Source information: Small nucleolar RNA Z157/R69/R10: a 99-nucleotide RNA from Acer saccharum. It is annotated as a C/D-box small nucleolar RNA. NCBI's taxonomy places the organism under Eukaryota, Streptophyta, Euphyllophyta, rosids, Acer. Pairs were carried over by alignment from the consensus structure, which was predicted with PFOLD. It scores 59 bits against the family's covariance model.
[Rfam]
RNA sequence: AUUACAUGCUAUGAUGAUACAAUUGUUUGUAGACUAGAGUUUUCGAUCUGCGUAAAUCCCGGAAGUUGAAGACUAACCCUUGGAUGUCUAAGCAAUAAU
Numbered sequence: 001a002u003u004a005c006a007u008g009c010u011a012u013g014a015u016g017a018u019a020c021a022a023u024u025g026u027u028u029g030u031a032g033a034c035u036a037g038a039g040u041u042u043u044c045g046a047u048c049u050g051c052g053u054a055a056a057u058c059c060c061g062g063a064a065g066u067u068g069a070a071g072a073c074u075a076a077c078c079c080u081u082g083g084a085u086g087u088c089u090a091a092g093c094a095a096u097a098a099u
Stems, first nucleotide, its partner, number of pairs: 001099004007094003040071004047064001048062003052059001